[Rfam]
RNA sequence: UGCCUCCAUGCUGGAGAGAGGCCGCAGCGCCGAGUUGCGGUCCACCGAAGGAGCAAGCCCCCAGCCGGGGUGAAUCUCUCAGGUAAAGCGGACAGCACGGGCCCG
Dot-bracket structure: .....((.(((((......(((((((.........))))))).(((((..(((...((((.......))))....))))).)))........))))).)).....
Description: Rfam assigns this 105-nucleotide RNA from Ramlibacter ginsenosidimutans to the family "Glycine riboswitch aptamer". Lineage of the source: Bacteria > Pseudomonadota > Burkholderiales > Comamonadaceae > Ramlibacter. It scores 61 bits against the family's covariance model.